[Rfam]
RNA sequence: CCUGUCUGUGUGAUGAAAUAAAUGUUGGUAGGGACAUCUGAUUUAAACUGAAGAAAUGCCAACUUUUCUGACUGAAUGGG
Dot-bracket structure: (((((......................................................................)))))
RNA: Small nucleolar RNA SNORD74